[Rfam]
RNA sequence: CAGAACACCACGCCACGGCAGGAGCGGGGGAACCACAGGUAGUACGCCGGGCCCGGAACGCACGGGAACGGCUCGGGGUGAAGCCGCGGAGACGCGGCCGGGCAACUCUCGCCCGAACCCGACAGCUCACCUCGCAGGCGUCGGAGAGGAACA
Numbered sequence: 001c002a003g004a005a006c007a008c009c010a011c012g013c014c015a016c017g018g019c020a021g022g023a024g025c026g027g028g029g030g031a032a033c034c035a036c037a038g039g040u041a042g043u044a045c046g047c048c049g050g051g052c053c054c055g056g057a058a059c060g061c062a063c064g065g066g067a068a069c070g071g072c073u074c075g076g077g078g079u080g081a082a083g084c085c086g087c088g089g090a091g092a093c094g095c096g097g098c099c100g101g102g103c104a105a106c107u108c109u110c111g112c113c114c115g116a117a118c119c120c121g122a123c124a125g126c127u128c129a130c131c132u133c134g135c136a137g138g139c140g141u142c143g144g145a146g147a148g149g150a151a152c153a
Stems, first nucleotide, its partner, number of pairs: 001021001024135006034075001076120003084097004100114004

A member of the RNA family "c-di-AMP riboswitch aptamer (ydaO/yuaA leader)" from Kitasatospora setae, 153 nucleotides long.
It scores 56 bits against the family's covariance model.